[Rfam]
RNA sequence: GAGGGUAUAGCUCAAGUGGUAGAGCGCAUGCUUAGCAUGCGUGCAGUCCUGGGUUCAAUCCCCAGUACCUCCU
Numbered sequence: 001g002a003g004g005g006u007a008u009a010g011c012u013c014a015a016g017u018g019g020u021a022g023a024g025c026g027c028a029u030g031c032u033u034a035g036c037a038u039g040c041g042u043g044c045a046g047u048c049c050u051g052g053g054u055u056c057a058a059u060c061c062c063c064a065g066u067a068c069c070u071c072c073u
Stems, first nucleotide, its partner, number of pairs: 001072001003070005010025004027043005049065005
RNA: tRNA
Organism: Camelus dromedarius